[Rfam]
RNA sequence: CGGUGAUGAUGUCUGAUCUCACGAUGGUCUGCGGAGCCCCCGGGCACUGCCGACACCGCCAGUGGCACCUCCUGAACCGGGCAC
Numbered sequence: 001c002g003g004u005g006a007u008g009a010u011g012u013c014u015g016a017u018c019u020c021a022c023g024a025u026g027g028u029c030u031g032c033g034g035a036g037c038c039c040c041c042g043g044g045c046a047c048u049g050c051c052g053a054c055a056c057c058g059c060c061a062g063u064g065g066c067a068c069c070u071c072c073u074g075a076a077c078c079g080g081g082c083a084c
Stems, first nucleotide, its partner, number of pairs: 001079004
Dot-bracket structure: ((((.......................................................................)))).....
The record is an 84-nucleotide sequence from Geococcyx californianus, which matches "Small nucleolar RNA SNORD35" in Rfam. About the family: U35 is a C/D box snoRNA located in intron 6 of ribosomal protein L13A and intron 3 of ribosomal protein S11 in humans and at homologous positions in mouse and chicken ribosomal protein genes. Rfam 15.1 lists 1,842 matches to the family in 634 species. Its family is annotated with RNA processing and nucleolus in the Gene Ontology. For this family Rfam cites "Intron-encoded, antisense small nucleolar RNAs: the characterization of nine novel species points to their direct role as guides for the 2'-O-ribose methylation of rRNAs" (Nicoloso et al., J Mol Biol, 1996). Taxonomically the source falls in Geococcyx (Eukaryota, Craniata, Tetrapoda, Dinosauria).